The record is a 93-nucleotide sequence from Effrenium voratum, which matches "Small nucleolar RNA snR60/Z15/Z230/Z193/J17" in Rfam.
A reference for the family is Lowe and Eddy (1999), "A computational screen for methylation guide snoRNAs in yeast", Science.
It is annotated as a C/D-box small nucleolar RNA.
Rfam 15.1 lists 3,592 matches to the family in 1,855 species.
The match comes from Rfam's covariance-model search (48 bits).
[Rfam]
RNA sequence: CGUGAGGCUGUGAAGAGGCAAACAAAUGCAUAGUUCACUCGGAGACGCGUGACGAAAGCUUUCAACGUCUUUCGCUCCUAUCUGAGCCUCAAG
Numbered sequence: 001c002g003u004g005a006g007g008c009u010g011u012g013a014a015g016a017g018g019c020a021a022a023c024a025a026a027u028g029c030a031u032a033g034u035u036c037a038c039u040c041g042g043a044g045a046c047g048c049g050u051g052a053c054g055a056a057a058g059c060u061u062u063c064a065a066c067g068u069c070u071u072u073c074g075c076u077c078c079u080a081u082c083u084g085a086g087c088c089u090c091a092a093g
Stems, first nucleotide, its partner, number of pairs: 004090005